[Rfam]
RNA sequence: UUCCGGCUUUCCAUCAGCCGGGGUCACUGAAGAGGCACACCAUCAUUGCCGGAAGUGCGGUCGGGUCUCCCCUCCAAUCCAUGGCAGACAAAGCGGAUUUAUGCGCCCGGUUAGCGGGUGCGUCUAUCCAUCGUUUACGCGUUGAGCGUUCGUA
Numbered sequence: 001u002u003c004c005g006g007c008u009u010u011c012c013a014u015c016a017g018c019c020g021g022g023g024u025c026a027c028u029g030a031a032g033a034g035g036c037a038c039a040c041c042a043u044c045a046u047u048g049c050c051g052g053a054a055g056u057g058c059g060g061u062c063g064g065g066u067c068u069c070c071c072c073u074c075c076a077a078u079c080c081a082u083g084g085c086a087g088a089c090a091a092a093g094c095g096g097a098u099u100u101a102u103g104c105g106c107c108c109g110g111u112u113a114g115c116g117g118g119u120g121c122g123u124c125u126a127u128c129c130a131u132c133g134u135u136u137a138c139g140c141g142u143u144g145a146g147c148g149u150u151c152g153u154a
Stems, first nucleotide, its partner, number of pairs: 001023008034050004057140003084094001103124001